A member of the RNA family "Mammalian CPEB3 ribozyme" from Alligator mississippiensis, 73 nucleotides long. Gene Ontology term of the family: RNA nuclease activity.

RNA sequence: UGCAAGUACAAGGUCAAAGCAGGAGCACCCAUGGCACGGGCUGUCAGAUUCCAGCGAAUCUGUGAAUUCUGCU
Dot-bracket structure: ............[[[..((((((((...........)]].]...(((((((....)))))))....)))))))
About this RNA:
The source organism's lineage runs through Eukaryota, Euteleostomi, Dipnotetrapodomorpha, Amniota and Alligator. The family's consensus secondary structure is taken from published work. The family has 14 seed sequences and 5,706 matches in Rfam 15.1.